[Rfam]
RNA sequence: GGUCCUGAGCGUCAGCGUCAAGCCCCGGCUCGCUGACCGGCAACCCUCCACUGGGACGGGGUGCCCCGGGUGACGACCUGGCGGACGCGCACCGCGCGUCCGCAAGCCCAGCCG
Number, nucleotide and partner (000 for none) at each position: 001g078002g077003u076004c075005c000006u000007g000008a000009g038010c000011g037012u036013c035014a034015g033016c032017g000018u000019c000020a000021a030022g029023c000024c000025c000026c000027g000028g000029c022030u021031c000032g016033c015034u014035g013036a012037c011038c009039g065040g064041c063042a000043a000044c061045c060046c059047u000048c000049c055050a000051c000052u000053g000054g000055g049056a000057c000058g000059g046060g045061g044062u000063g041064c040065c039066c000067c000068g000069g000070g000071u000072g000073a000074c000075g004076a003077c002078c001079u000080g000081g103082c102083g101084g100085a099086c098087g097088c096089g095090c094091a000092c000093c000094g090095c089096g088097c087098g086099u085100c084101c083102g082103c081104a000105a000106g000107c000108c000109c000110a000111g000112c000113c000114g000
Notes
Shown here is a 114-nucleotide RNA from Geodermatophilus nigrescens, a member of the family "SAM (S-adenosyl methionine) riboswitch aptamer". The source organism's lineage runs through Bacteria, Bacillati, Actinomycetes, Geodermatophilales and Geodermatophilus.